[Rfam]
RNA: Eukaryotic small subunit ribosomal RNA, nucleotides 22 to 616
RNA sequence: AGUCAUAUGCUUGUCUCAAAGAUUAAGCCAUGCAUGUCUAAGAUCGCUCGGAACCCGCAAGGGUUUAUCGGUAAUCUGCGAAAGGCUCAUUAUAACAGUUACAAACUUAGCCACUAGUUUAUCUUACAAGGAUAACACAGCCAACUGCAGCGAUAAUACUUGCUCAAAAGCCAGUGAAUUGAAUAGCUGGUGAGCAAUAGCAUUAAAGGAACGUAUGCUAUUUACCUCGAAAGAGGUGUUGACCGCAGCAAUGUGGCCUAGAGGAAGUAUUUCUUCCUUAUCAGUUAGUUGUUUCAGUAAGGGUGAAACAAGACACUUACGGGUACGGGGAAUCAGUGUUCGAUUCCGGAGAGGGAGCCUGAGAAAUGGCUACUACAUCUAAGGAGGGCAGCAGGCGCGAAAAUUACCCAAUCCUAACAAUUUUGGGAGGUAGUGACAAGAAAUAACGACCUCACACGCAGACUCUGUCGGUGGGAGGGUACUUCGGUUUGCAAUGGUCCUAGUUUAAAUCUCUAGGAGAGUAUCGAUUGGAGGACAAGUCUGGUGCCAGCACCCGCGGUAAUUCCAGCUCCAAAAGCAUAUACUAAAAUUGCUG
Numbered sequence: 001a002g003u004c005a006u007a008u009g010c011u012u013g014u015c016u017c018a019a020a021g022a023u024u025a026a027g028c029c030a031u032g033c034a035u036g037u038c039u040a041a042g043a044u045c046g047c048u049c050g051g052a053a054c055c056c057g058c059a060a061g062g063g064u065u066u067a068u069c070g071g072u073a074a075u076c077u078g079c080g081a082a083a084g085g086c087u088c089a090u091u092a093u094a095a096c097a098g099u100u101a102c103a104a105a106c107u108u109a110g111c112c113a114c115u116a117g118u119u120u121a122u123c124u125u126a127c128a129a130g131g132a133u134a135a136c137a138c139a140g141c142c143a144a145c146u147g148c149a150g151c152g153a154u155a156a157u158a159c160u161u162g163c164u165c166a167a168a169a170g171c172c173a174g175u176g177a178a179u180u181g182a183a184u185a186g187c188u189g190g191u192g193a194g195c196a197a198u199a200g201c202a203u204u205a206a207a208g209g210a211a212c213g214u215a216u217g218c219u220a221u222u223u224a225c226c227u228c229g230a231a232a233g234a235g236g237u238g239u240u241g242a243c244c245g246c247a248g249c250a251a252u253g254u255g256g257c258c259u260a261g262a263g264g265a266a267g268u269a270u271u272u273c274u275u276c277c278u279u280a281u282c283a284g285u286u287a288g289u290u291g292u293u294u295c296a297g298u299a300a301g302g303g304u305g306a307a308a309c310a311a312g313a314c315a316c317u318u319a320c321g322g323g324u325a326c327g328g329g330g331a332a333u334c335a336g337u338g339u340u341c342g343a344u345u346c347c348g349g350a351g352a353g354g355g356a357g358c359c360u361g362a363g364a365a366a367u368g369g370c371u372a373c374u375a376c377a378u379c380u381a382a383g384g385a386g387g388g389c390a391g392c393a394g395g396c397g398c399g400a401a402a403a404u405u406a407c408c409c410a411a412u413c414c415u416a417a418c419a420a421u422u423u424u425g426g427g428a429g430g431u432a433g434u435g436a437c438a439a440g441a442a443a444u445a446a447c448g449a450c451c452u453c454a455c456a457c458g459c460a461g462a463c464u465c466u467g468u469c470g471g472u473g474g475g476a477g478g479g480u481a482c483u484u485c486g487g488u489u490u491g492c493a494a495u496g497g498u499c500c501u502a503g504u505u506u507a508a509a510u511c512u513c514u515a516g517g518a519g520a521g522u523a524u525c526g527a528u529u530g531g532a533g534g535a536c537a538a539g540u541c542u543g544g545u546g547c548c549a550g551c552a553c554c555c556g557c558g559g560u561a562a563u564u565c566c567a568g569c570u571c572c573a574a575a576a577g578c579a580u581a582u583a584c585u586a587a588a589a590u591u592g593c594u595g
Base pairs, nucleotide, nucleotide: 001585002584003583005582006581007580008579009578010577011576014441015440016439020434021398027396028395029394031393032392033391036079037078041077042076043075048071049070050069051068086351087350088349097274098273101270105268106267111263127162128161129160130159136152138150140148141147171190172189173188174187175186195233198230200228210219212217243256244255245254246253277323278322279321284314285313286312289311290310291309292308293307294306295305296304326348327347328346329345330341331340332339333338353374354373356371357370358369376387378385379384404432406431407430408429412427413426414425416423447491448490449489450487451486454483456480457479459477498518499517502514503513528574529573530572531571532570533569541568542567543566544565550557551556